The family of this 191-nucleotide RNA from Aromatoleum aromaticum is "Manganese Mn2+ riboswitch aptamer (yybP-ykoY)". Rfam links the family to the GO term manganese ion binding. The source organism's lineage runs through Bacteria, Pseudomonadota, Rhodocyclales, Aromatoleum and Aromatoleum aromaticum. The base pairs follow the family's consensus structure. Rfam's curators write: This RNA was originally discovered in E. coli during a large scale screen and was named SraF. The family was later found to exist upstream of related families of protein genes in many bacteria, including the the yybP and ykoK genes in B. subtilis. The specific functions of these proteins are unknown, but this structured RNA element may be involved in their genetic regulation as a riboswitch. Rfam's curators put it in the seed alignment.
RNA sequence: CCGGUAGAAUUCGCGCCGUCAUCAGGGAGUAGCCGCCUGCGAGCCUUCGCAGGGACCACGUCAACAGACUUGCGCGUCGCGCAUGGCGUGGCCAGCCUUCGGGCCUGGCGAGACUUUUGGCUGCAUGCCCUCCGAUUUUUCGGGCCCGGGAGGCGUGCGGUCAUCGGUCAUCAGCCGGCCCGGAGAACCUG
Numbered sequence: 001c002c003g004g005u006a007g008a009a010u011u012c013g014c015g016c017c018g019u020c021a022u023c024a025g026g027g028a029g030u031a032g033c034c035g036c037c038u039g040c041g042a043g044c045c046u047u048c049g050c051a052g053g054g055a056c057c058a059c060g061u062c063a064a065c066a067g068a069c070u071u072g073c074g075c076g077u078c079g080c081g082c083a084u085g086g087c088g089u090g091g092c093c094a095g096c097c098u099u100c101g102g103g104c105c106u107g108g109c110g111a112g113a114c115u116u117u118u119g120g121c122u123g124c125a126u127g128c129c130c131u132c133c134g135a136u137u138u139u140u141c142g143g144g145c146c147c148g149g150g151a152g153g154c155g156u157g158c159g160g161u162c163a164u165c166g167g168u169c170a171u172c173a174g175c176c177g178g179c180c181c182g183g184a185g186a187a188c189c190u191g
Base pairs, nucleotide, nucleotide: 005052007050054093056091057090058089059088060087061086062085063084071083072082073081074080075079095179096178097177100174